[Rfam]
RNA: SAH (S-adenosyl-L-homocysteine) riboswitch aptamer
Organism: Winogradskya consettensis
RNA sequence: CAGGCCGAGGGGCGCUGCGACGGGGUGACCCGCCACGCUCGGACUGGAUUCACCGACCAAGGGCGCCUCCGAGAU
Numbered sequence: 001c002a003g004g005c006c007g008a009g010g011g012g013c014g015c016u017g018c019g020a021c022g023g024g025g026u027g028a029c030c031c032g033c034c035a036c037g038c039u040c041g042g043a044c045u046g047g048a049u050u051c052a053c054c055g056a057c058c059a060a061g062g063g064c065g066c067c068u069c070c071g072a073g074a075u
Base pairs, nucleotide, nucleotide: 002045003044005042006041007040008039021032022031023030024029